Description: mir-46/mir-47/mir-281 microRNA precursor family: an 88-nucleotide RNA sequence from Caenorhabditis japonica. A search with the family's covariance model found it, with a score of 62 bits. Pairs were carried over by alignment from the consensus structure, which was predicted with RNAalifold.
[Rfam]
Nucleotides: 088
Stems, first nucleotide, its partner, number of pairs: 014076005020070003025064004031059003035055002
Number, partner (000 for none) and nucleotide at each position: 001000g002000c003000u004000c005000u006000g007000a008000a009000a010000a011000g012000c013000u014076g015075a016074a017073g018072a019000g020070a021069g022068c023000a024000g025064u026063c027062u028061a029000u030000u031059g032058a033057c034000a035055g036054u037000u038000g039000g040000u041000u042000c043000u044000a045000c046000u047000c048000c049000a050000a051000c052000u053000c054036a055035c056000u057033g058032u059031c060000a061028u062027g063026g064025a065000g066000g067000c068022g069021c070020u071000c072018u073017c074016u075015u076014c077000a078000g079000a080000u081000g082000a083000u084000c085000c086000g087000a088000c